[Rfam]
RNA sequence: UGGACUGUUGAUGACAAGUGGUGGCUUAUGUGGUUGUACAUGCUGGUUGUAUAUGAAGAAUAUUACAUAUCUGAAACUUUGAGGUCCAA
Numbered sequence: 001u002g003g004a005c006u007g008u009u010g011a012u013g014a015c016a017a018g019u020g021g022u023g024g025c026u027u028a029u030g031u032g033g034u035u036g037u038a039c040a041u042g043c044u045g046g047u048u049g050u051a052u053a054u055g056a057a058g059a060a061u062a063u064u065a066c067a068u069a070u071c072u073g074a075a076a077c078u079u080u081g082a083g084g085u086c087c088a089a
Stems, first nucleotide, its partner, number of pairs: 002087005